[Rfam]
RNA sequence: GGUAAUAAAGAAUAGAACAGAUAACGGAUUUGUUUCACGACAACGCUGGGAUACUGAAUAUAAUAUCUUUUAACUGGUAUCAGCACAAGAUAUAGCGAAUUAUAAAACCAAAUAUCCACGGAAGACAAAGGAUUGGUGCGUCUGAAUGGACUCGAACCAUCGACCCCCACCA
Dot-bracket structure: ........................((...((((......))))...)).....................................................................................(((.(....((.((((.......))))))..).)))...
RNA: Bacterial antisense RNA HPnc0260
Organism: Salmonella enterica